[Rfam]
RNA sequence: UAAUAUAGAACUUGUAAGCAAGGAAUACAAUUAGUUUUACUCCCUUUUUGCUAAUUGUAGAAUUCCUUAAAAUCCUAAACUCCCUUUUUGGACCGACUUGAUUGUCGGUC
Numbered sequence: 001u002a003a004u005a006u007a008g009a010a011c012u013u014g015u016a017a018g019c020a021a022g023g024a025a026u027a028c029a030a031u032u033a034g035u036u037u038u039a040c041u042c043c044c045u046u047u048u049u050g051c052u053a054a055u056u057g058u059a060g061a062a063u064u065c066c067u068u069a070a071a072a073u074c075c076u077a078a079a080c081u082c083c084c085u086u087u088u089u090g091g092a093c094c095g096a097c098u099u100g101a102u103u104g105u106c107g108g109u110c
Stems, first nucleotide, its partner, number of pairs: 020068006026059010091110007